[Rfam]
RNA sequence: AGAGUCUUACAUUGAAGGUCUAGCCAACCACAAUGACCCCGAGUCAGGCGCAGGUGGCCGUAAGGUCACAGGCGAAGCAAUGACAGUGGUACGGACAGGCGGAGUAUUGAGCCGCGAAAACUUUAUUCCCAGGGUGCCGACGUUGUCAAGGUAUACGGAAGGCAACACGGACAUGUGCAAGAUGGCAAGGGCAUGUCUGACCCUGCGCGGUCGGAGACCU
Number, nucleotide and partner (000 for none) at each position: 001a000002g000003a000004g000005u000006c000007u000008u000009a000010c035011a034012u033013u032014g031015a000016a000017g029018g028019u027020c000021u188022a000023g186024c185025c000026a000027a019028c018029c017030a000031c014032a013033a012034u011035g010036a000037c089038c088039c000040c086041g000042a000043g084044u083045c082046a081047g000048g078049c074050g073051c072052a000053g000054g069055u068056g067057g066058c065059c064060g000061u000062a000063a000064g059065g058066u057067c056068a055069c054070a000071g000072g051073c050074g049075a000076a000077g000078c048079a000080a000081u046082g045083a044084c043085a000086g040087u000088g038089g037090u000091a000092c000093g000094g000095a000096c000097a000098g000099g000100c000101g000102g000103a000104g000105u000106a000107u000108u214109g212110a000111g211112c210113c209114g208115c207116g206117a000118a000119a000120a000121c000122u000123u000124u000125a000126u000127u000128c000129c000130c205131a204132g203133g202134g201135u200136g163137c162138c161139g000140a000141c157142g156143u155144u000145g000146u000147c000148a000149a000150g000151g000152u000153a000154u000155a143156c142157g141158g000159a000160a000161g138162g137163c136164a000165a000166c000167a000168c199169g198170g197171a196172c195173a194174u193175g192176u191177g000178c189179a000180a000181g000182a000183u000184g000185g024186c023187a000188a021189g178190g000191g176192c175193a174194u173195g172196u171197c170198u169199g168200a135201c134202c133203c132204u131205g130206c116207g115208c114209g113210g112211u111212c109213g000214g108215a000216g000217a000218c000219c000220u000

The family of this 220-nucleotide RNA sequence from Candidatus Sulfobium mesophilum is "Group II catalytic intron D1-D4-6". Taxonomically the source falls in Candidatus Sulfobium (Bacteria, Nitrospirota, Nitrospiria, Nitrospiraceae). Group II introns are found in rRNA, tRNA and mRNA of organelles in fungi, plants and protists, and also in mRNA in bacteria. Rfam 15.1 lists 1,617 matches to the family in 661 species.